[Rfam]
RNA sequence: CCACACUCUGUCCAUUACACACUCCUGCCUCUUCUCUAUGAGAGACAGUGGGGUAUAGUGGAUAGGGCAUGGGU
Numbered sequence: 001c002c003a004c005a006c007u008c009u010g011u012c013c014a015u016u017a018c019a020c021a022c023u024c025c026u027g028c029c030u031c032u033u034c035u036c037u038a039u040g041a042g043a044g045a046c047a048g049u050g051g052g053g054u055a056u057a058g059u060g061g062a063u064a065g066g067g068c069a070u071g072g073g074u
Base pairs, nucleotide, nucleotide: 001072002071003070006067007066008065009064011062012061013060014059015058016057017056019054020053023051024050025048026047027046029044030043031042032041033040
Dot-bracket structure: (((..((((.(((((((.((..(((((.(((((......))))).))).)).)).))))))).))))..)))..
Rfam assigns this 74-nucleotide RNA sequence from Nannospalax galili to the family "mir-885 microRNA precursor family". A reference for the family is Jin et al. (2009), "Characterization of bovine miRNAs by sequencing and bioinformatics analysis", BMC Mol Biol. NCBI's taxonomy places the organism under Eukaryota, Vertebrata, Eutheria, Spalacidae, Nannospalax. Rfam 15.1 lists 120 matches to the family in 120 species.